[Rfam]
RNA: Eukaryotic large subunit ribosomal RNA, nucleotides 3050 to 3448
RNA sequence: GAAGGGUUGUCACAACAGUAAUUAUACUUAGUACGAGAGGAACCGUAUAUUCGCAUACUUGGUUUUUGCGGUUAUCUGAAAAGAUAGUGCCGCGAAGCUACCAUGCGUAGGAUAAUGGCUGAACGCCUCUAAGCCAGAAUCCAUGCUGGAAUGUGAUGAUUAAACUACCUCCUUAAUAUAAACGAUUAACAAUAGGCGCGGUUCUUCUGCGUCGAGCAUCAUAACGGGAGGGUUCCCCGGUCACGGAAGCGUGUUCUGGGUAGCCUUCGAAUUACAACCGAAAUAUUUAUGGAGGAGAAAUCCUUUGCAGACGACUUAAAUGAAACGGGGUGUUGUAAGCUGUAGAGUAGCCUUGUUGCUACGAUCGGCUGAGAUUAAGCCCUUGUUUCGAAGAUUUGU
Numbered sequence: 001g002a003a004g005g006g007u008u009g010u011c012a013c014a015a016c017a018g019u020a021a022u023u024a025u026a027c028u029u030a031g032u033a034c035g036a037g038a039g040g041a042a043c044c045g046u047a048u049a050u051u052c053g054c055a056u057a058c059u060u061g062g063u064u065u066u067u068g069c070g071g072u073u074a075u076c077u078g079a080a081a082a083g084a085u086a087g088u089g090c091c092g093c094g095a096a097g098c099u100a101c102c103a104u105g106c107g108u109a110g111g112a113u114a115a116u117g118g119c120u121g122a123a124c125g126c127c128u129c130u131a132a133g134c135c136a137g138a139a140u141c142c143a144u145g146c147u148g149g150a151a152u153g154u155g156a157u158g159a160u161u162a163a164a165c166u167a168c169c170u171c172c173u174u175a176a177u178a179u180a181a182a183c184g185a186u187u188a189a190c191a192a193u194a195g196g197c198g199c200g201g202u203u204c205u206u207c208u209g210c211g212u213c214g215a216g217c218a219u220c221a222u223a224a225c226g227g228g229a230g231g232g233u234u235c236c237c238c239g240g241u242c243a244c245g246g247a248a249g250c251g252u253g254u255u256c257u258g259g260g261u262a263g264c265c266u267u268c269g270a271a272u273u274a275c276a277a278c279c280g281a282a283a284u285a286u287u288u289a290u291g292g293a294g295g296a297g298a299a300a301u302c303c304u305u306u307g308c309a310g311a312c313g314a315c316u317u318a319a320a321u322g323a324a325a326c327g328g329g330g331u332g333u334u335g336u337a338a339g340c341u342g343u344a345g346a347g348u349a350g351c352c353u354u355g356u357u358g359c360u361a362c363g364a365u366c367g368g369c370u371g372a373g374a375u376u377a378a379g380c381c382c383u384u385g386u387u388u389c390g391a392a393g394a395u396u397u398g399u
Stems, first nucleotide, its partner, number of pairs: 006160008016148004021051001023049005052107005060100003067094005072087006110142002116136005169294004174289002298397005304318001307315001322389006328382003332375002339369004344365001347362005